[Rfam]
RNA sequence: UUUUUGAGAACCAUUUGAAUCAAGUAAUGGAAAUGGAAUGAUUCAAAUGGUUCUUAAUG
Numbered sequence: 001u002u003u004u005u006g007a008g009a010a011c012c013a014u015u016u017g018a019a020u021c022a023a024g025u026a027a028u029g030g031a032a033a034u035g036g037a038a039u040g041a042u043u044c045a046a047a048u049g050g051u052u053c054u055u056a057a058u059g
Stems, first nucleotide, its partner, number of pairs: 004057019